[Rfam]
RNA sequence: AAGCGAAGAAGUAAGGUUUGUUGUGCCAGAGGUCAGUGCCUUACGAGCUUUAUAAGGGUUUAGCAUUUACCACAAUUUGGCUAGAGAAUACAUAUUUUCAAAAGAAAAUGCAGGGA
Number, nucleotide and partner (000 for none) at each position: 001a050002a049003g048004c047005g000006a000007a000008g000009a000010a000011g044012u043013a042014a041015g040016g039017u000018u000019u038020g037021u036022u035023g034024u000025g000026c080027c079028a078029g077030a000031g000032g000033u000034c023035a022036g021037u020038g019039c016040c015041u014042u013043a012044c011045g000046a000047g004048c003049u002050u001051u000052a000053u000054a000055a000056g000057g000058g000059u000060u000061u000062a000063g111064c110065a109066u000067u000068u000069a000070c000071c000072a000073c000074a000075a000076u000077u029078u028079g027080g026081c000082u000083a000084g099085a098086g097087a096088a095089u094090a000091c000092a000093u000094a089095u088096u087097u086098u085099c084100a000101a000102a000103a000104g000105a000106a000107a000108a000109u065110g064111c063112a000113g000114g000115g000116a000
Rfam assigns this 116-nucleotide sequence to the family "drum RNA". Rfam's curators write: Firmicutes, Bacteroidetes (1 example), Proteobacteria (2 examples), Spirochaetes (2 examples). It is annotated as a small RNA.